[Rfam]
RNA sequence: UCGCAAUCCGCCAACCGGUCAAGCCGGGUCGCGGAAGGUUGUCAAACCCAUCAGAGUUCCGGAAACCGGGGCGAAAGGUGAGCG
Numbered sequence: 001u002c003g004c005a006a007u008c009c010g011c012c013a014a015c016c017g018g019u020c021a022a023g024c025c026g027g028g029u030c031g032c033g034g035a036a037g038g039u040u041g042u043c044a045a046a047c048c049c050a051u052c053a054g055a056g057u058u059c060c061g062g063a064a065a066c067c068g069g070g071g072c073g074a075a076a077g078g079u080g081a082g083c084g
Base pairs, nucleotide, nucleotide: 002084003083004082007035008034009033010032011031016026017025018024019023037048038047039046040045049080050079051078052077056072057071058070059069060068061067062066
Rfam assigns this 84-nucleotide RNA from Burkholderiales bacterium JOSHI_001 to the family "SucA RNA motif".
Pairs were carried over by alignment from the consensus structure, which is taken from published work.
By type it is a cis-regulatory element.
The source organism's lineage runs through Bacteria, Pseudomonadati, Pseudomonadota, Betaproteobacteria and Burkholderiales.